RNA sequence: GCCAAAUGAUGUAAAGUAGAUGGCAUUAGCACUGUGUGCGAGGAUGACUUGCAUCUGUCACCCAAUACUGAUGGCU
Numbered sequence: 001g002c003c004a005a006a007u008g009a010u011g012u013a014a015a016g017u018a019g020a021u022g023g024c025a026u027u028a029g030c031a032c033u034g035u036g037u038g039c040g041a042g043g044a045u046g047a048c049u050u051g052c053a054u055c056u057g058u059c060a061c062c063c064a065a066u067a068c069u070g071a072u073g074g075c076u
Stems, first nucleotide, its partner, number of pairs: 001075004029039004
Dot-bracket structure: ((((........................((((...))))................................)))).
RNA: Small nucleolar RNA SNORD83
Organism: Pelusios castaneus